RNA sequence: CUCUCCGCAGAGUGACAGCCCCCUCUGAAACCUCCAGGGGAGGGGGCUUGAUGGGGCAGAGGG
Number, nucleotide and partner (000 for none) at each position: 001c063002u062003c061004u060005c059006c000007g000008c000009a000010g000011a000012g000013u000014g000015a000016c000017a048018g047019c046020c045021c044022c043023c042024u041025c040026u039027g000028a000029a000030a000031c038032c037033u000034c000035c000036a000037g032038g031039g026040g025041a024042g023043g022044g021045g020046g019047c018048u017049u000050g000051a000052u000053g000054g000055g000056g000057c000058a000059g005060a004061g003062g002063g001
A member of the RNA family "Selenocysteine insertion sequence 1" from Irena cyanogastra, 63 nucleotides long. The organism belongs to Irena, within Eukaryota. Rfam classes the family as a cis-regulatory element. About the family: The incorporation of selenocysteine into a protein sequence is directed by an in-frame UGA codon (usually a stop codon) within the coding region of the mRNA. Selenoprotein mRNAs contain a conserved secondary structure in the 3' UTR that is required for the distinction of UGA stop from UGA selenocysteine.